Rfam assigns this 98-nucleotide RNA from Rhinolophus ferrumequinum to the family "mir-325 microRNA precursor family". A search with the family's covariance model found it, with a score of 97 bits. The source organism's lineage runs through Eukaryota, Vertebrata, Eutheria, Laurasiatheria and Rhinolophus.

RNA sequence: CUAUAGUUCUUGGUUCCUAGUAGGUGUUCAGUAAGUGUUUGUCACAUAAUUCGUUUAUUGAGCACCUCCUAUCAAUUAAUCACUGUGCUAGGCUUUGG
Numbered sequence: 001c002u003a004u005a006g007u008u009c010u011u012g013g014u015u016c017c018u019a020g021u022a023g024g025u026g027u028u029c030a031g032u033a034a035g036u037g038u039u040u041g042u043c044a045c046a047u048a049a050u051u052c053g054u055u056u057a058u059u060g061a062g063c064a065c066c067u068c069c070u071a072u073c074a075a076u077u078a079a080u081c082a083c084u085g086u087g088c089u090a091g092g093c094u095u096u097g098g
Stems, first nucleotide, its partner, number of pairs: 003086005010079006018071003022067004027062001029060009040049001